[Rfam]
RNA sequence: UACCUGUAGUGGGUCUCCGUCGGAAGGUGCAUCGACAUCCUUUACGUUCAUUCCUGUCGACGCUUUAGCGAGAGCCCAGUUCGAGCCCGGUGGUGUCCGAUACCACUCAUGUAGGUAACUCAUGAUGCUGGACGGACCUAAGCAAUGAAAACUACUGUUGAGGGAAGCAAUUCUGCAGACGCGUUUUCACCAUUGGGCGGCGGUACUGGAUUACUCUUGCUAGGGUUGGAAUGAGCGAAAAGGGCUGGUGUAUCAACCAGCAAAAAAAAAAAAAUUUUUUU
Number, nucleotide and partner (000 for none) at each position: 001u000002a014003c013004c012005u000006g000007u000008a000009g000010u000011g000012g004013g003014u002015c000016u000017c000018c000019g000020u000021c000022g000023g000024a000025a000026g000027g000028u000029g000030c000031a281032u000033c000034g249035a000036c247037a246038u244039c243040c242041u241042u240043u239044a000045c237046g236047u235048u234049c233050a232051u231052u230053c229054c228055u000056g000057u000058c000059g000060a000061c000062g000063c225064u224065u000066u222067a221068g220069c219070g218071a217072g216073a215074g214075c000076c209077c208078a207079g206080u205081u203082c202083g201084a000085g198086c197087c196088c195089g194090g193091u192092g191093g190094u000095g137096u000097c135098c134099g133100a000101u132102a000103c130104c127105a126106c000107u125108c124109a123110u122111g121112u000113a120114g119115g000116u000117a000118a000119c114120u113121c111122a110123u109124g108125a107126u105127g104128c000129u000130g103131g000132a101133c099134g098135g097136a000137c095138c142139u000140a000141a000142g138143c000144a000145a000146u189147g188148a187149a186150a185151a184152c183153u000154a000155c000156u181157g180158u179159u178160g000161a000162g000163g000164g173165a172166a171167g000168c000169a000170a000171u166172u165173c164174u000175g000176c000177a000178g159179a158180c157181g156182c000183g152184u151185u150186u149187u148188c147189a146190c093191c092192a091193u090194u089195g088196g087197g086198c085199g000200g000201c083202g082203g081204u000205a080206c079207u078208g077209g076210a000211u000212u000213a000214c074215u073216c072217u071218u070219g069220c068221u067222a066223g000224g064225g063226u000227u000228g054229g053230a052231a051232u050233g049234a048235g047236c046237g045238a000239a043240a042241a041242g040243g039244g038245c000246u037247g036248g000249u034250g000251u000252a000253u000254c000255a000256a000257c000258c000259a000260g000261c000262a000263a000264a000265a000266a000267a000268a000269a000270a000271a000272a000273a000274a000275u000276u000277u000278u000279u000280u000281u031
This 281-nucleotide sequence from Zopfia rhizophila belongs to the Rfam family "Fungal signal recognition particle RNA". It scores 141 bits against the family's covariance model. Its Rfam clan is "SRP clan". The literature on the family includes a 2002 paper in Curr Opin Struct Biol by Wild et al., "Towards the structure of the mammalian signal recognition particle". The source organism's lineage runs through Eukaryota, Opisthokonta, Fungi, Dothideomycetes and Zopfia rhizophila. Rfam 15.1 lists 748 matches to the family in 741 species.